[Rfam]
RNA sequence: UCGGCUGUUGCUAUGGGUGCUACUUCGGUGCCUAGACUUGAUCUUUUCUUAGUCAGGUACCUGAAGUAGCGCGCGUAGCGGCAGUCU
Numbered sequence: 001u002c003g004g005c006u007g008u009u010g011c012u013a014u015g016g017g018u019g020c021u022a023c024u025u026c027g028g029u030g031c032c033u034a035g036a037c038u039u040g041a042u043c044u045u046u047u048c049u050u051a052g053u054c055a056g057g058u059a060c061c062u063g064a065a066g067u068a069g070c071g072c073g074c075g076u077a078g079c080g081g082c083a084g085u086c087u
Stems, first nucleotide, its partner, number of pairs: 009080004014075001017072006030058003035054004
RNA: mir-275 microRNA precursor family
Organism: Brassicogethes aeneus